[Rfam]
Rfam assigns this 113-nucleotide RNA from Paenibacillus ferrarius to the family "azaaromatic riboswitch aptamer (yjdF RNA)". The family's consensus secondary structure is taken from published work.

RNA sequence: AAAGCAGAAUGCCAAAACACAGUUCCGGUUGGUAGUCCGGACGCAUGCGGAUACAAAGUAUCCCUUGUCAGUAACCUUCCCCCCUUGGGAUGUCCCGCAUUCUGAUUGGAGCA
Numbered sequence: 001a002a003a004g005c006a007g008a009a010u011g012c013c014a015a016a017a018c019a020c021a022g023u024u025c026c027g028g029u030u031g032g033u034a035g036u037c038c039g040g041a042c043g044c045a046u047g048c049g050g051a052u053a054c055a056a057a058g059u060a061u062c063c064c065u066u067g068u069c070a071g072u073a074a075c076c077u078u079c080c081c082c083c084c085u086u087g088g089g090a091u092g093u094c095c096c097g098c099a100u101u102c103u104g105a106u107u108g109g110a111g112c113a
Base pairs, nucleotide, nucleotide: 005104006103007102008101009100010099011098022042023041025040026039027038028037043068044067045066047064078090079089080088081087